[Rfam]
RNA sequence: GGGCGGUACCGGGCCCCUCUGGCGAGGGCUUACCAAAGCCCUCGUGAUGUCGGACCGCAUCG
Numbered sequence: 001g002g003g004c005g006g007u008a009c010c011g012g013g014c015c016c017c018u019c020u021g022g023c024g025a026g027g028g029c030u031u032a033c034c035a036a037a038g039c040c041c042u043c044g045u046g047a048u049g050u051c052g053g054a055c056c057g058c059a060u061c062g
Base pairs, nucleotide, nucleotide: 006056009053010052011051012050022045023044024043025042026041027040028039029038
terC RNA: a 62-nucleotide sequence from Sphingomonas alpina. It is annotated as a cis-regulatory element.